[Rfam]
RNA sequence: GCACCUGAAUCUUUCCCAUUCCUGCUGCUUUGUGCUGGUCUUGGGGACAGAAGGUGCUAUACUAUCAGCAGAGGAUAUCCAGACGGGUUGUUUUCCAUUUACUUGGGGCCUGUCUCUACAACUCUGCCACAUUC
Numbered sequence: 001g002c003a004c005c006u007g008a009a010u011c012u013u014u015c016c017c018a019u020u021c022c023u024g025c026u027g028c029u030u031u032g033u034g035c036u037g038g039u040c041u042u043g044g045g046g047a048c049a050g051a052a053g054g055u056g057c058u059a060u061a062c063u064a065u066c067a068g069c070a071g072a073g074g075a076u077a078u079c080c081a082g083a084c085g086g087g088u089u090g091u092u093u094u095c096c097a098u099u100u101a102c103u104u105g106g107g108g109c110c111u112g113u114c115u116c117u118a119c120a121a122c123u124c125u126g127c128c129a130c131a132u133u134c
Stems, first nucleotide, its partner, number of pairs: 001057005013047006021038002068127006081115008095106003
Rfam assigns this 134-nucleotide RNA sequence from Castor canadensis to the family "Small nucleolar RNA SNORA55". ACA55 is a member of the H/ACA class of snoRNA that guide the sites of modification of uridines to pseudouridines. Taxonomically the source falls in Castor (Eukaryota, Gnathostomata, Euteleostomi, Euarchontoglires). The family's consensus secondary structure was predicted with PFOLD. A search with the family's covariance model found it, with a score of 140 bits.